[Rfam]
RNA sequence: UCAGCAAAAGGCAAACUCUUUGAAAAAAGAGGACGCAAAGUCACGGGUCUAAUGUUCUAUAAAAAGAACAACGACGGCUGGGCUGCCUGAA
Dot-bracket structure: (.((......((...((((((....))))))..[))..((((.((((((.......................))).])))))))..))..)
Numbered sequence: 001u002c003a004g005c006a007a008a009a010g011g012c013a014a015a016c017u018c019u020u021u022g023a024a025a026a027a028a029g030a031g032g033a034c035g036c037a038a039a040g041u042c043a044c045g046g047g048u049c050u051a052a053u054g055u056u057c058u059a060u061a062a063a064a065a066g067a068a069c070a071a072c073g074a075c076g077g078c079u080g081g082g083c084u085g086c087c088u089g090a091a
Stems, first nucleotide, its partner, number of pairs: 001091001003088002011036002016031006034077001039084004044080003047075003

Background
A member of the RNA family "c-di-GMP-I-GGC riboswitch aptamer" from Litchfieldia salsa, 91 nucleotides long. The match comes from Rfam's covariance-model search (69 bits). Rfam 15.1 lists 1,298 matches to the family in 717 species.